[Rfam]
RNA: MIR2275 microRNA precursor family
Organism: Vitis rotundifolia
RNA sequence: AAGCAGUACAUGAGAAUUGGAGGAAAUUAAUCCCAUUAGCAUUGUCAAUGCAGUAGUGGGUUUAAUUUCCUCCAAUAUCUCAUCUACUGCUU
Numbered sequence: 001a002a003g004c005a006g007u008a009c010a011u012g013a014g015a016a017u018u019g020g021a022g023g024a025a026a027u028u029a030a031u032c033c034c035a036u037u038a039g040c041a042u043u044g045u046c047a048a049u050g051c052a053g054u055a056g057u058g059g060g061u062u063u064a065a066u067u068u069c070c071u072c073c074a075a076u077a078u079c080u081c082a083u084c085u086a087c088u089g090c091u092u
Base pairs, nucleotide, nucleotide: 004089005088006087007086008085011082012081013080014079016076017075018074019073020072021071023069024068025067026066027065028064029063030062032060033059